[Rfam]
RNA sequence: UGUCUCAAAGAUUAAGCUAUACAUGUCUAAGUAUGCAGGGCCGGUACAGUGAAAAUGCGAAUGGCUCAUUAAAUCAGUUACGGUUCUUUUGGUCGCUCUCUCCUCUCCUACUCGCAAAACUGUGGUAAUUAUAGAGUUAAUACAUGCCGAAGGGCGCUGAUCCCCUUCGCGGGGAAGAUGCGUGCAUUUAUCAGAUCAAAACCAACCCGGUCAGCCCCUUUUCAGCCCCGGCCUUGGGGGGUCAGGUACCACCGUCUUUGGUGACUCUAGAUAGCCUCGGGCUAAUCGCACGCCCCCCGUGGCAGGGACAACCCAUUGGAACGUCUGCCCUAUCAACUUUCGAUGGUAGUCGCUGUGCCUACCAUGGUGACCACGGGUGAAGGGGAAUCAGGGUUGGAUUCUGGAGAGGGAGCCUGAGAAAUGGCUACCACAUUCAAGGAAGGCAGCAGGCAUGCAAAUUACCCACUCCCGACCCGAGGAGGUAGUGACCAAAAAUAACAAUACAGGACUCUUUCGAGGUCCUGUAAUUGGAAUGAGUCCACUUUAAAUCCUUUAACGAGGAUCCA
Number, nucleotide and partner (000 for none) at each position: 001u000002g000003u493004c000005u491006c000007a000008a000009a486010g453011a000012u000013u000014a000015a000016g451017c450018u449019a000020u448021a000022c446023a000024u000025g058026u057027c000028u000029a000030a056031g000032u054033a000034u000035g000036c000037a050038g000039g000040g000041c000042c000043g000044g000045u000046a000047c000048a000049g000050u037051g000052a000053a000054a032055a000056u030057g026058c025059g000060a000061a000062u000063g000064g000065c406066u405067c404068a000069u000070u000071a000072a000073a000074u000075c327076a326077g325078u000079u000080a000081c000082g000083g000084u320085u319086c000087u000088u000089u000090u315091g314092g313093u000094c000095g000096c000097u000098c000099u000100c000101u000102c000103c000104u000105c000106u000107c000108c000109u000110a000111c146112u000113c000114g143115c000116a000117a000118a000119a137120c136121u135122g000123u133124g132125g000126u000127a000128a000129u000130u000131a000132u124133a123134g000135a121136g120137u119138u000139a000140a000141u000142a000143c114144a000145u000146g111147c000148c000149g000150a000151a000152g000153g000154g183155c182156g181157c180158u000159g000160a000161u176162c000163c000164c000165c000166u000167u000168c000169g000170c000171g000172g000173g000174g000175a000176a161177g000178a000179u000180g157181c156182g155183u154184g000185c000186a000187u000188u274189u273190a272191u271192c270193a000194g000195a000196u000197c000198a000199a000200a000201a262202c261203c260204a259205a000206c000207c000208c000209g000210g000211u000212c000213a000214g000215c000216c000217c000218c000219u000220u000221u000222u000223c000224a000225g000226c000227c000228c000229c000230g000231g000232c000233c000234u000235u000236g000237g000238g000239g000240g000241g000242u000243c000244a000245g253246g252247u251248a000249c000250c000251a247252c246253c245254g000255u000256c000257u000258u000259u204260g203261g202262u201263g000264a000265c000266u000267c000268u000269a000270g192271a191272u190273a189274g188275c000276c000277u000278c000279g000280g000281g000282c000283u000284a000285a000286u308287c307288g000289c305290a000291c000292g303293c302294c301295c000296c000297c000298c000299g000300u000301g294302g293303c292304a000305g289306g000307g287308a286309c000310a000311a000312c000313c092314c091315a090316u000317u000318g000319g085320a084321a000322c000323g000324u000325c077326u076327g075328c000329c377330c376331u375332a000333u000334c000335a000336a368337c367338u366339u000340u000341c000342g000343a365344u364345g363346g362347u361348a360349g359350u000351c000352g000353c000354u000355g000356u000357g000358c000359c349360u348361a347362c346363c345364a344365u343366g338367g337368u336369g000370a000371c000372c000373a000374c000375g331376g330377g329378u000379g000380a000381a000382g402383g401384g400385g000386a395387a394388u393389c000390a000391g000392g000393g388394u387395u386396g000397g000398a000399u000400u384401c383402u382403g000404g067405a066406g065407a000408g429409g428410g000411a426412g425413c424414c000415u000416g000417a000418g000419a000420a000421a000422u000423g000424g413425c412426u411427a000428c409429c408430a000431c442432a000433u440434u439435c000436a000437a000438g000439g434440a433441a000442g431443g000444c000445a000446g022447c000448a020449g018450g017451c016452a000453u010454g000455c000456a000457a000458a000459u484460u000461a483462c482463c481464c000465a000466c000467u479468c478469c000470c476471g475472a000473c000474c000475c471476g470477a000478g468479g467480a000481g463482g462483u461484a459485g000486u009487g000488a000489c000490c000491a005492a000493a003494a000495a000496u000497a000498a000499c530500a529501a528502u526503a525504c524505a523506g522507g521508a000509c518510u517511c516512u000513u000514u000515c000516g511517a510518g509519g000520u000521c507522c506523u505524g504525u503526a502527a000528u501529u500530g499531g000532a000533a000534u000535g000536a000537g557538u556539c000540c000541a553542c000543u000544u000545u000546a000547a000548a000549u000550c000551c000552u000553u541554u000555a000556a538557c537558g000559a000560g000561g000562a000563u000564c000565c000566a000
Rfam assigns this 566-nucleotide part of an RNA from Pan troglodytes to the family "Eukaryotic small subunit ribosomal RNA". For this family Rfam cites "The comparative RNA web (CRW) site: an online database of comparative sequence and structure information for ribosomal, intron, and other RNAs" (Cannone et al., BMC Bioinformatics, 2002). NCBI's taxonomy places the organism under Eukaryota, Eumetazoa, Dipnotetrapodomorpha, Haplorrhini, Pan.